Background: A member of the RNA family "bZIP non canonical Hac1/Xbp1 intron" from Culex pipiens, 83 nucleotides long. The base pairs follow the family's consensus structure, which was predicted with RNAfold. The family's RNA type in Rfam is small RNA.

[Rfam]
RNA sequence: GGUUGUGUUUCCACCCUACUAGGAUCAGCAGCAUCCGCCCAAACCCCUCUGCCGCAGGGAUUACUUUCAAUGGAAGCACAAAC
Numbered sequence: 001g002g003u004u005g006u007g008u009u010u011c012c013a014c015c016c017u018a019c020u021a022g023g024a025u026c027a028g029c030a031g032c033a034u035c036c037g038c039c040c041a042a043a044c045c046c047c048u049c050u051g052c053c054g055c056a057g058g059g060a061u062u063a064c065u066u067u068c069a070a071u072g073g074a075a076g077c078a079c080a081a082a083c
Stems, first nucleotide, its partner, number of pairs: 001083001003081005009075005022036004045059004